[Rfam]
RNA sequence: GAGCAAUGAAGAGAAAUGCGCUCUUGUGUUGGCUAGGGUCCAUCACUCUAUCUGAUCCAACGAUUAGAAUUUGCGAACCUGAGCUC
Number, nucleotide and partner (000 for none) at each position: 001g086002a085003g084004c083005a000006a000007u000008g000009a000010a000011g000012a000013g000014a000015a000016a000017u000018g000019c000020g000021c000022u000023c000024u000025u000026g000027u000028g000029u000030u000031g000032g000033c000034u000035a000036g000037g000038g000039u000040c000041c000042a000043u000044c000045a000046c000047u000048c000049u000050a000051u000052c000053u000054g000055a000056u000057c000058c000059a000060a000061c000062g000063a000064u000065u000066a000067g000068a000069a000070u000071u000072u000073g000074c000075g000076a000077a000078c000079c000080u000081g000082a000083g004084c003085u002086c001
A member of the RNA family "small nucleolar RNA snoR114" from Gossypium raimondii, 86 nucleotides long. The base pairs follow the family's consensus structure, which was predicted with RNAalifold. The family's RNA type in Rfam is C/D-box small nucleolar RNA. Rfam links the family to the GO terms nucleolus and RNA processing. The organism belongs to Gossypium, within Eukaryota. On this family, see Chen and Wu, Nucleic Acids Res 2009: "Mining small RNA sequencing data: a new approach to identify small nucleolar RNAs in Arabidopsis". The match comes from Rfam's covariance-model search (67 bits).